[Rfam]
RNA sequence: GCCCUAUAUAAGAUGCAUCAACGCAAGAUAGUUGAACAUCUCCCUGUAGGGUUUAGUUUACCAGAAGCUUUGACAACAAGUCUUAUUGUGUGGCUACGGUCGAAAUGGGGUGAGUCAGAGUGGAAUAGGUUAACCGUAAGACCUUGAGUUGGAAAACUCUAAAAUUGAGCUAGGAGUACGGAUUUCGUAUUUUCUAGUUACGGUUCG
Numbered sequence: 001g002c003c004c005u006a007u008a009u010a011a012g013a014u015g016c017a018u019c020a021a022c023g024c025a026a027g028a029u030a031g032u033u034g035a036a037c038a039u040c041u042c043c044c045u046g047u048a049g050g051g052u053u054u055a056g057u058u059u060a061c062c063a064g065a066a067g068c069u070u071u072g073a074c075a076a077c078a079a080g081u082c083u084u085a086u087u088g089u090g091u092g093g094c095u096a097c098g099g100u101c102g103a104a105a106u107g108g109g110g111u112g113a114g115u116c117a118g119a120g121u122g123g124a125a126u127a128g129g130u131u132a133a134c135c136g137u138a139a140g141a142c143c144u145u146g147a148g149u150u151g152g153a154a155a156a157c158u159c160u161a162a163a164a165u166u167g168a169g170c171u172a173g174g175a176g177u178a179c180g181g182a183u184u185u186c187g188u189a190u191u192u193u194c195u196a197g198u199u200a201c202g203g204u205u206c207g
Base pairs, nucleotide, nucleotide: 001052002051003050004049005048006047007046008045011041012040013039014038015037018035019034020033021032022031023029067121068120069119070118071117072116073115074114081110082109083108084107085106086105087104092101093100127144128143129142130141131140133204134203135202136201137200138199139165146159147158148157149156150155170197171196172195173194174193175192176191177189178188179187180186